[Rfam]
RNA sequence: GCUGGAGGUUGCGGCGUACCUCUGUAAUCCAAGUGUCUGGGAGGCUGAGAGCAGUUUGGAUUGGCUGUCAGUGGGGCCAACUUCAUCGUUGUCGUUUCCUAUGUCGAUCGGGUGUCCACACUAAGCUUGGCGUCAAUAUGGGUUGGCAUCGGCAACGGCGCCAAUCCAGGUUGAUCAUAAUGAGGAGUGCAAUGGCUCAGAGUGGUGACACCGCAGGCAAAAGCUCCCGCGUCUAGCGGUAGUGGGAUCGCGCCCGUGAAUAGGACGUCCGAUGUAGCCCAUUUGGUUAGUUGAGACCUGCUCUUUU
Numbered sequence: 001g002c003u004g005g006a007g008g009u010u011g012c013g014g015c016g017u018a019c020c021u022c023u024g025u026a027a028u029c030c031a032a033g034u035g036u037c038u039g040g041g042a043g044g045c046u047g048a049g050a051g052c053a054g055u056u057u058g059g060a061u062u063g064g065c066u067g068u069c070a071g072u073g074g075g076g077c078c079a080a081c082u083u084c085a086u087c088g089u090u091g092u093c094g095u096u097u098c099c100u101a102u103g104u105c106g107a108u109c110g111g112g113u114g115u116c117c118a119c120a121c122u123a124a125g126c127u128u129g130g131c132g133u134c135a136a137u138a139u140g141g142g143u144u145g146g147c148a149u150c151g152g153c154a155a156c157g158g159c160g161c162c163a164a165u166c167c168a169g170g171u172u173g174a175u176c177a178u179a180a181u182g183a184g185g186a187g188u189g190c191a192a193u194g195g196c197u198c199a200g201a202g203u204g205g206u207g208a209c210a211c212c213g214c215a216g217g218c219a220a221a222a223g224c225u226c227c228c229g230c231g232u233c234u235a236g237c238g239g240u241a242g243u244g245g246g247a248u249c250g251c252g253c254c255c256g257u258g259a260a261u262a263g264g265a266c267g268u269c270c271g272a273u274g275u276a277g278c279c280c281a282u283u284u285g286g287u288u289a290g291u292u293g294a295g296a297c298c299u300g301c302u303c304u305u306u307u
Stems, first nucleotide, its partner, number of pairs: 001045003004023006028042003047305008056296001061294006068285001070283006081277002084274005091269001093267003098264005104258001109256007116246002119244005125237003129233005134173004139168009149158003176182002184227005193220001195218003202211003
Overview: The record is a 307-nucleotide RNA from Blomia tropicalis, which matches "Metazoan signal recognition particle RNA" in Rfam. The base pairs follow the family's consensus structure, which is taken from published work. A search with the family's covariance model found it, with a score of 197 bits. Rfam's curators write: The signal recognition particle (SRP) is a universally conserved ribonucleoprotein. It is involved in the co-translational targeting of proteins to membranes. The eukaryotic SRP consists of a 300-nucleotide 7S RNA and six proteins: SRPs 72, 68, 54, 19, 14, and 9. Taxonomically the source falls in Blomia (Eukaryota, Metazoa, Protostomia, Chelicerata). A reference for the family is Regalia et al. (2002), "Prediction of signal recognition particle RNA genes", Nucleic Acids Res.